The family of this 128-nucleotide RNA sequence from Rattus norvegicus is "Small nucleolar RNA SNORA55". The organism belongs to Rattus, within Eukaryota. The family's consensus secondary structure was predicted with PFOLD.
[Rfam]
RNA sequence: GAAGCUUCCUAGCCUGGUUAAGAUUUUAACCAGCUCUGGGGACAGACGGUGCUACAGUAGAGAAGAGGAAAUUCAGACGGGUCGUUUCCAUCUGUUCUGGGGCCUGUCUCUACAACUCUGCUACGCUC
Numbered sequence: 001g002a003a004g005c006u007u008c009c010u011a012g013c014c015u016g017g018u019u020a021a022g023a024u025u026u027u028a029a030c031c032a033g034c035u036c037u038g039g040g041g042a043c044a045g046a047c048g049g050u051g052c053u054a055c056a057g058u059a060g061a062g063a064a065g066a067g068g069a070a071a072u073u074c075a076g077a078c079g080g081g082u083c084g085u086u087u088c089c090a091u092c093u094g095u096u097c098u099g100g101g102g103c104c105u106g107u108c109u110c111u112a113c114a115a116c117u118c119u120g121c122u123a124c125g126c127u128c
Stems, first nucleotide, its partner, number of pairs: 006042007015033001062121001064119004075109008088100003